Description: A member of the RNA family "ZMP/ZTP riboswitch aptamer (pfl RNA motif)" from Kribbella sandramycini, 82 nucleotides long.

[Rfam]
RNA sequence: UGAGCGCGUCGCGACUGGCGCGCUGAGGUGGAGAACCACCGGGGAGCGAAGAACGGCGGCACCGUGCGCCUGGGUGCCCUCG
Numbered sequence: 001u002g003a004g005c006g007c008g009u010c011g012c013g014a015c016u017g018g019c020g021c022g023c024u025g026a027g028g029u030g031g032a033g034a035a036c037c038a039c040c041g042g043g044g045a046g047c048g049a050a051g052a053a054c055g056g057c058g059g060c061a062c063c064g065u066g067c068g069c070c071u072g073g074g075u076g077c078c079c080u081c082g
Stems, first nucleotide, its partner, number of pairs: 004054001007051001009049004015043002017070005028039004059077005